[Rfam]
RNA sequence: AGGCGUUUGGGAGCUGUAACCUAAGGGCGGUAGCAUG
Numbered sequence: 001a002g003g004c005g006u007u008u009g010g011g012a013g014c015u016g017u018a019a020c021c022u023a024a025g026g027g028c029g030g031u032a033g034c035a036u037g
Stems, first nucleotide, its partner, number of pairs: 007024005
A member of the RNA family "JUMPstart RNA" from Photobacterium halotolerans, 37 nucleotides long. Rfam 15.1 lists 288 matches to the family in 230 species. It is annotated as a cis-regulatory element.